Shown here is a 109-nucleotide sequence from Brevundimonas variabilis, a member of the family "TPP riboswitch aptamer (THI element)".
[Rfam]
RNA sequence: UGUCGUUCUCCCGGGGGUCGCGCCAGAGCGACUGAGAUUGGCGUGAUCGCCUGACCGGUCGAACCUGAUCCGGGUCAUGCCGGCGAAGGGAUGAGACCACACGGUUCCC
Numbered sequence: 001u002g003u004c005g006u007u008c009u010c011c012c013g014g015g016g017g018u019c020g021c022g023c024c025a026g027a028g029c030g031a032c033u034g035a036g037a038u039u040g041g042c043g044u045g046a047u048c049g050c051c052u053g054a055c056c057g058g059u060c061g062a063a064c065c066u067g068a069u070c071c072g073g074g075u076c077a078u079g080c081c082g083g084c085g086a087a088g089g090g091a092u093g094a095g096a097c098c099a100c101a102c103g104g105u106u107c108c109c
Base pairs, nucleotide, nucleotide: 007096008095009094010093011058012057013056014055016052017032018031019030020029021028040051041050042049043048064089065088066087070083071082072081073080
Description:
The source organism's lineage runs through Bacteria, Pseudomonadati, Pseudomonadota, Alphaproteobacteria and Brevundimonas.